[Rfam]
RNA sequence: GUUUUGCAAUAGGGAUGGAAGCGGCAUCCUUUGUGGUGGCGCGAGGCGACGGAGCGUAGCGGAGUCGUCCGAGUGCCACUACAAAGAUAUAGCGGACAGCCCGACCGCAA
Number, nucleotide and partner (000 for none) at each position: 001g000002u000003u000004u000005u000006g000007c000008a000009a000010u000011a000012g102013g101014g100015a000016u098017g097018g000019a000020a000021g093022c092023g000024g000025c000026a088027u087028c086029c000030u000031u000032u083033g082034u081035g080036g079037u078038g077039g076040c075041g074042c073043g000044a000045g000046g000047c000048g000049a000050c000051g000052g000053a000054g000055c000056g000057u000058a000059g000060c000061g000062g000063a000064g000065u000066c000067g000068u000069c000070c000071g000072a000073g042074u041075g040076c039077c038078a037079c036080u035081a034082c033083a032084a000085a000086g028087a027088u026089a000090u000091a000092g022093c021094g000095g000096a000097c017098a016099g000100c014101c013102c012103g000104a000105c000106c000107g000108c000109a000110a000

Shown here is a 110-nucleotide RNA from Soonwooa buanensis, a member of the family "Flavo-1 RNA". Lineage of the source: Bacteria > Pseudomonadati > Bacteroidota > Flavobacteriia > Soonwooa. The family's RNA type in Rfam is small RNA.